Rfam assigns this 126-nucleotide RNA sequence from Algibacter lectus to the family "Bacteroidete tryptophan peptide leader RNA". The base pairs follow the family's consensus structure, which is taken from published work. Taxonomically the source falls in Algibacter (Bacteria, Pseudomonadati, Bacteroidota, Flavobacteriales). By type it is a cis-regulatory leader. Gene Ontology terms of the family: regulation of gene expression and S-adenosylmethionine metabolic process.
[Rfam]
RNA sequence: UUGAACCAACAUAAAAAAUAACAAUGAACAUAUUUUUAAAUAAUUCUUGGUGGUGGAACUUUCGAAACUAAAAUUCGUGAAGAAACCCGAGUAUAUUUAAAACUUAAAAUAUCCAAAAGGCUUGUC
Numbered sequence: 001u002u003g004a005a006c007c008a009a010c011a012u013a014a015a016a017a018a019u020a021a022c023a024a025u026g027a028a029c030a031u032a033u034u035u036u037u038a039a040a041u042a043a044u045u046c047u048u049g050g051u052g053g054u055g056g057a058a059c060u061u062u063c064g065a066a067a068c069u070a071a072a073a074u075u076c077g078u079g080a081a082g083a084a085a086c087c088c089g090a091g092u093a094u095a096u097u098u099a100a101a102a103c104u105u106a107a108a109a110u111a112u113c114c115a116a117a118a119g120g121c122u123u124g125u126c
Base pairs, nucleotide, nucleotide: 036100037099038098040096041095042094044093046091047090049088050087060081061080062079063077065075066074